[Rfam]
RNA sequence: AUGAAAAAUUUGCCGAAUUCCCUUGCAAGAGGGAAACGGGGGAACCAUUCUGGGUGAAUUGAUCCCGACAGCCGGUCUGCCGAAGACCGUCUGCCAGAGGCGAUCAUAGGGAGCCUUCAACCGAACCCCACAGCUAACCUCGUAGGCCCCGGAAGGAGUUUCC
Numbered sequence: 001a002u003g004a005a006a007a008a009u010u011u012g013c014c015g016a017a018u019u020c021c022c023u024u025g026c027a028a029g030a031g032g033g034a035a036a037c038g039g040g041g042g043a044a045c046c047a048u049u050c051u052g053g054g055u056g057a058a059u060u061g062a063u064c065c066c067g068a069c070a071g072c073c074g075g076u077c078u079g080c081c082g083a084a085g086a087c088c089g090u091c092u093g094c095c096a097g098a099g100g101c102g103a104u105c106a107u108a109g110g111g112a113g114c115c116u117u118c119a120a121c122c123g124a125a126c127c128c129c130a131c132a133g134c135u136a137a138c139c140u141c142g143u144a145g146g147c148c149c150c151g152g153a154a155g156g157a158g159u160u161u162c163c
Stems, first nucleotide, its partner, number of pairs: 012147003018035007036143006052128003060106004109122002